[Rfam]
RNA sequence: GAGAACUGCUAUUUCGAAGUGCGGAAUGAUGGGGUAACGCCCUGAAACGCACUCACUGAAGCUGCGGCAGGCAUUAGAAGUAUUGCAAAAAAAACUUUUGUCUGAAGCCCGCUAAAGUGGGCUGAAGUUCACCCUAACGUUUUAGGCGAGGAAAAGGAGCUACAAAGCUUCCGUGAAUGAUAGGUCUGGUGUCUAUAAA
Numbered sequence: 001g002a003g004a005a006c007u008g009c010u011a012u013u014u015c016g017a018a019g020u021g022c023g024g025a026a027u028g029a030u031g032g033g034g035u036a037a038c039g040c041c042c043u044g045a046a047a048c049g050c051a052c053u054c055a056c057u058g059a060a061g062c063u064g065c066g067g068c069a070g071g072c073a074u075u076a077g078a079a080g081u082a083u084u085g086c087a088a089a090a091a092a093a094a095c096u097u098u099u100g101u102c103u104g105a106a107g108c109c110c111g112c113u114a115a116a117g118u119g120g121g122c123u124g125a126a127g128u129u130c131a132c133c134c135u136a137a138c139g140u141u142u143u144a145g146g147c148g149a150g151g152a153a154a155a156g157g158a159g160c161u162a163c164a165a166a167g168c169u170u171c172c173g174u175g176a177a178u179g180a181u182a183g184g185u186c187u188g189g190u191g192u193c194u195a196u197a198a199a
Base pairs, nucleotide, nucleotide: 018053019052020051021050022049023048031043032042033041034040054191055190056189057188064112065111066110067109068104069103070102071101072100073099076096077095081091119187120186121185122184123183127178128177129176130175131174132173133151134150135149139147140146156171157170158169159168160167161166
About this RNA
The family of this 199-nucleotide RNA sequence from Bacillus sp. B1-b2 is "Group II catalytic intron D1-D4-5". The pairing is the family consensus, mapped onto this sequence. About the family: Group II introns are found in rRNA, tRNA and mRNA of organelles in fungi, plants and protists, and also in mRNA in bacteria. Rfam links the family to the GO term Group II intron splicing. The organism belongs to Bacillus, within Bacteria.